Shown here is a 141-nucleotide RNA from Drosophila busckii, a member of the family "Small nucleolar RNA psi28S-1192". Rfam describes the family as follows. psi28S-1192 is a member of the H/ACA class of snoRNA. This family is responsible for guiding the modification of uridine 1192 to pseudouridine in Drosophila 28S rRNA. It is annotated as an H/ACA-box small nucleolar RNA. Rfam links the family to the GO terms nucleolus and RNA processing. The match comes from Rfam's covariance-model search (123 bits).

[Rfam]
RNA sequence: ACUGUGUCCAGUCUAAUUCUACAUCAUGUCAUAGUAUAUUGUCGUAGACUCGCUUUUGGACAAAAGCAAACAUACUUUUAUUAUCCUUGUGCUUGUGACAGAUUUAAGUCCUAUGCACACGAGAAACGUAGAAGAACAGCU
Numbered sequence: 001a002c003u004g005u006g007u008c009c010a011g012u013c014u015a016a017u018u019c020u021a022c023a024u025c026a027u028g029u030c031a032u033a034g035u036a037u038a039u040u041g042u043c044g045u046a047g048a049c050u051c052g053c054u055u056u057u058g059g060a061c062a063a064a065a066g067c068a069a070a071c072a073u074a075c076u077u078u079u080a081u082u083a084u085c086c087u088u089g090u091g092c093u094u095g096u097g098a099c100a101g102a103u104u105u106a107a108g109u110c111c112u113a114u115g116c117a118c119a120c121g122a123g124a125a126a127c128g129u130a131g132a133a134g135a136a137c138a139g140c141u
Base pairs, nucleotide, nucleotide: 005062006061007060008059009058010057019047020046021045022044025041026040027038028037075134076133077132078131079130080129081128086123087122088121089120090119091118